Rfam assigns this 158-nucleotide RNA sequence from Streptomyces tirandamycinicus to the family "c-di-AMP riboswitch aptamer (ydaO/yuaA leader)". The match comes from Rfam's covariance-model search (63 bits). Rfam links the family to the GO terms regulation of gene expression and cyclic-di-AMP binding. Rfam's curators write: This family represents a conserved RNA structure found upstream of the ydaO and yuaA genes in Bacillus subtilis and related genes in other bacteria. The ydaO/yuaA element is thought to act as a genetic 'off' switch for the ydaO and yuaA genes in its native state. It is believed that the element may be triggered during osmotic shock leading to activation of ydaO, a predicted amino acid transporter gene, and members of the yuaA-yubG operon which code for KtrA and KtrB K+ transporters.
RNA sequence: AUAUCGCACCCACCCACACAUGUGGCAGGAGCGGGGGACCCAGGUACCGCGCCGUUCCGUGAUCCCGGACGGCUUGGGGUGAAGCCGUGUCCACGCGCGGCCGGGCGGCUCCAGCCCGAACCCGACAGCUCACCUCGCAGGCGGCGGAGAGGAAAGCG
Numbered sequence: 001a002u003a004u005c006g007c008a009c010c011c012a013c014c015c016a017c018a019c020a021u022g023u024g025g026c027a028g029g030a031g032c033g034g035g036g037g038a039c040c041c042a043g044g045u046a047c048c049g050c051g052c053c054g055u056u057c058c059g060u061g062a063u064c065c066c067g068g069a070c071g072g073c074u075u076g077g078g079g080u081g082a083a084g085c086c087g088u089g090u091c092c093a094c095g096c097g098c099g100g101c102c103g104g105g106c107g108g109c110u111c112c113a114g115c116c117c118g119a120a121c122c123c124g125a126c127a128g129c130u131c132a133c134c135u136c137g138c139a140g141g142c143g144g145c146g147g148a149g150a151g152g153a154a155a156g157c158g
Base pairs, nucleotide, nucleotide: 007143009141010140015029031138032137033136034135035134036133041076042075043074044073045072077123078122079121085100086099087098088097103117104116105115106114